A member of the RNA family "Actinomyces-1 RNA" from Actinomyces respiraculi, 109 nucleotides long. By type it is a small RNA.

RNA sequence: GUCACCGCCGGACGGAACGGGUCGCGAGGGUUGGGGAGCCCCGUGACCGGCCCGGACCGAGGAUGGCGAGGGUCCAAGGGAGCUCUCGCCAUCCGUUCUGGCGAAGGAG
Numbered sequence: 001g002u003c004a005c006c007g008c009c010g011g012a013c014g015g016a017a018c019g020g021g022u023c024g025c026g027a028g029g030g031u032u033g034g035g036g037a038g039c040c041c042c043g044u045g046a047c048c049g050g051c052c053c054g055g056a057c058c059g060a061g062g063a064u065g066g067c068g069a070g071g072g073u074c075c076a077a078g079g080g081a082g083c084u085c086u087c088g089c090c091a092u093c094c095g096u097u098c099u100g101g102c103g104a105a106g107g108a109g
Stems, first nucleotide, its partner, number of pairs: 006103007013059003018054007028041005061094006069086005
The source organism's lineage runs through Bacteria, Actinomycetota, Actinomycetales, Actinomycetaceae and Actinomyces. It scores 104 bits against the family's covariance model.